[Rfam]
RNA sequence: UGACCCUAACGGGUCACCUAGCCAACUGACGUUGUUAGUGAACAAAGUAUUCACGAAAUGAAGCCAAUAGAUCGAUUUCUAUUGGCUAUUUUUUU
Dot-bracket structure: ((((((....))))))...............((((..(((((.(...).)))))...))))..((((((((......))))))))..........
Numbered sequence: 001u002g003a004c005c006c007u008a009a010c011g012g013g014u015c016a017c018c019u020a021g022c023c024a025a026c027u028g029a030c031g032u033u034g035u036u037a038g039u040g041a042a043c044a045a046a047g048u049a050u051u052c053a054c055g056a057a058a059u060g061a062a063g064c065c066a067a068u069a070g071a072u073c074g075a076u077u078u079c080u081a082u083u084g085g086c087u088a089u090u091u092u093u094u095u
Stems, first nucleotide, its partner, number of pairs: 001016006032061004038054005044048001064085008